RNA sequence: AUUCUGUUCGUAGGAACACCGAGAAGCGGAUUUAUUCUAUACUCGAUAAGUACCAAUACGCAAUGGG
Numbered sequence: 001a002u003u004c005u006g007u008u009c010g011u012a013g014g015a016a017c018a019c020c021g022a023g024a025a026g027c028g029g030a031u032u033u034a035u036u037c038u039a040u041a042c043u044c045g046a047u048a049a050g051u052a053c054c055a056a057u058a059c060g061c062a063a064u065g066g067g
Stems, first nucleotide, its partner, number of pairs: 002021001005018005042067003050059003
Dot-bracket structure: .(..(((((....)))))..)....................(((.....(((....))).....)))